Shown here is a 140-nucleotide RNA sequence from Microctonus aethiopoides, a member of the family "U4atac minor spliceosomal RNA".
From the family's description: U4atac is an essential component of the minor U12-type spliceosome complex which is required for removal of the rarer class of eukaryotic introns (AT-AC, U12-type).
Lineage of the source: Eukaryota > Protostomia > Ecdysozoa > Endopterygota > Microctonus.

[Rfam]
RNA sequence: UUCGUCCUUGUCUUUGGGGAGCAUAGUAUUCAAUGAACGUUAUGUGAGGAUACUGAUGCUGAAACCAAUAAAUGAAACACCCGCAUCUGUAUAUUUUAUUGGUAAAGCCAUGAAAUAUAUGUGUUGCAAUUUUUGAAAGG
Numbered sequence: 001u002u003c004g005u006c007c008u009u010g011u012c013u014u015u016g017g018g019g020a021g022c023a024u025a026g027u028a029u030u031c032a033a034u035g036a037a038c039g040u041u042a043u044g045u046g047a048g049g050a051u052a053c054u055g056a057u058g059c060u061g062a063a064a065c066c067a068a069u070a071a072a073u074g075a076a077a078c079a080c081c082c083g084c085a086u087c088u089g090u091a092u093a094u095u096u097u098a099u100u101g102g103u104a105a106a107g108c109c110a111u112g113a114a115a116u117a118u119a120u121g122u123g124u125u126g127c128a129a130u131u132u133u134u135g136a137a138a139g140g
Base pairs, nucleotide, nucleotide: 005019006018007017008016021059022058023057024056025054026053027052028051029050030049031048037045038044083127084126085125087123091118092117093116094115095114096113097112098111099110
Dot-bracket structure: ....((((.......)))).(((((((((((.....((.....))..))))))).)))).......................(((.(...(((((((((..........)))))))))....).))).............